A member of the RNA family "Group I catalytic intron" from Mycena kentingensis, 322 nucleotides long.
It scores 100 bits against the family's covariance model.
A reference for the family is Cech (1990), "Self-splicing of group I introns", Annu Rev Biochem.
Lineage of the source: Eukaryota > Fungi > Agaricomycotina > Agaricomycetes > Mycena.
The base pairs follow the family's consensus structure, which is taken from published work.
RNA sequence: CCAGAAAAGUUAACAAAUGUGGAUAGCUUUUAAGAGCGAGCUUGAAAGGGCUUCGCUAGUGAGCGUUUUCAAAAAGCGUUUGCGAGACUGUCGAAUUGCGGGAAAGUCCUUAGAGCCUUUGCUACCGCCUCUAUGUUGAAAAGCAUAGCAGCGCACCAGGGUAAUGACCUCGGGUAUGGUAAUAACGCAAAGGAUUGGAAUAUCCGCAGCCAAGGUCCUAAAGAGUUUUACAAGCUCUAAGGAACAGGUUCAACGACUAAGUGGCAGUCGGUGUUGCGAAAGCAAUGCUUAAGAUAUAGUCUGACCCUCCAGAAAUGGAGCU
Numbered sequence: 001c002c003a004g005a006a007a008a009g010u011u012a013a014c015a016a017a018u019g020u021g022g023a024u025a026g027c028u029u030u031u032a033a034g035a036g037c038g039a040g041c042u043u044g045a046a047a048g049g050g051c052u053u054c055g056c057u058a059g060u061g062a063g064c065g066u067u068u069u070c071a072a073a074a075a076g077c078g079u080u081u082g083c084g085a086g087a088c089u090g091u092c093g094a095a096u097u098g099c100g101g102g103a104a105a106g107u108c109c110u111u112a113g114a115g116c117c118u119u120u121g122c123u124a125c126c127g128c129c130u131c132u133a134u135g136u137u138g139a140a141a142a143g144c145a146u147a148g149c150a151g152c153g154c155a156c157c158a159g160g161g162u163a164a165u166g167a168c169c170u171c172g173g174g175u176a177u178g179g180u181a182a183u184a185a186c187g188c189a190a191a192g193g194a195u196u197g198g199a200a201u202a203u204c205c206g207c208a209g210c211c212a213a214g215g216u217c218c219u220a221a222a223g224a225g226u227u228u229u230a231c232a233a234g235c236u237c238u239a240a241g242g243a244a245c246a247g248g249u250u251c252a253a254c255g256a257c258u259a260a261g262u263g264g265c266a267g268u269c270g271g272u273g274u275u276g277c278g279a280a281a282g283c284a285a286u287g288c289u290u291a292a293g294a295u296a297u298a299g300u301c302u303g304a305c306c307c308u309c310c311a312g313a314a315a316u317g318g319a320g321c322u
Stems, first nucleotide, its partner, number of pairs: 005031008086269005092263002097208006107199003209249002216243003222238005253302001255301005271288007307320005